[Rfam]
RNA sequence: AAAAAUAAGAGGGUGUGGGUGAAGAAUUCCCCUGCCUGUUUAAAGGAGGGUCUUCAGAUUGCAUUAGCAAUCGUCGAAGGGACC
Numbered sequence: 001a002a003a004a005a006u007a008a009g010a011g012g013g014u015g016u017g018g019g020u021g022a023a024g025a026a027u028u029c030c031c032c033u034g035c036c037u038g039u040u041u042a043a044a045g046g047a048g049g050g051u052c053u054u055c056a057g058a059u060u061g062c063a064u065u066a067g068c069a070a071u072c073g074u075c076g077a078a079g080g081g082a083c084c
Base pairs, nucleotide, nucleotide: 015035016034017033018032019031021029022028057072058071059070060069061068

The family of this 84-nucleotide RNA from Anaeromicrobium sediminis is "Clostridiales-2 RNA".
The source organism's lineage runs through Bacteria, Bacillati, Clostridia, Peptostreptococcales and Anaeromicrobium.